[Rfam]
The family of this 107-nucleotide sequence is "Actinomyces-1 RNA". The base pairs follow the family's consensus structure, which is taken from published work.
RNA sequence: AUCGCCGCCGGACGGCGCGGGCCGCUAAGGGACGAUUCCCUGUGACUGGCCCGGCCGAGAAGCGACGGGGUCGCAGGGAGCCCCGGCAAUUCGCUCCGGCGAAGGAG
Numbered sequence: 001a002u003c004g005c006c007g008c009c010g011g012a013c014g015g016c017g018c019g020g021g022c023c024g025c026u027a028a029g030g031g032a033c034g035a036u037u038c039c040c041u042g043u044g045a046c047u048g049g050c051c052c053g054g055c056c057g058a059g060a061a062g063c064g065a066c067g068g069g070g071u072c073g074c075a076g077g078g079a080g081c082c083c084c085g086g087c088a089a090u091u092c093g094c095u096c097c098g099g100c101g102a103a104g105g106a107g
Stems, first nucleotide, its partner, number of pairs: 006101007013057004018053007028041002031038002059092003064087001067084005